[Rfam]
RNA sequence: GGGUGUCGGGUCAACAUAGGGUUGAUCUAGGGCAGGUAAUUGUGUUGGUCGGGCCGCCACG
Numbered sequence: 001g002g003g004u005g006u007c008g009g010g011u012c013a014a015c016a017u018a019g020g021g022u023u024g025a026u027c028u029a030g031g032g033c034a035g036g037u038a039a040u041u042g043u044g045u046u047g048g049u050c051g052g053g054c055c056g057c058c059a060c061g
Base pairs, nucleotide, nucleotide: 005033006032007031008028009027010026011025012024013023014022043061044060045059047058048057049056
Rfam assigns this 61-nucleotide RNA to the family "nhaA-I RNA". Rfam classes the family as a riboswitch. Rfam's curators write: Acidobacteria, Alphaproteobacteria, Betaproteobacteria and Gammaproteobacteria, Verrucomicrobia, cand. division NC10.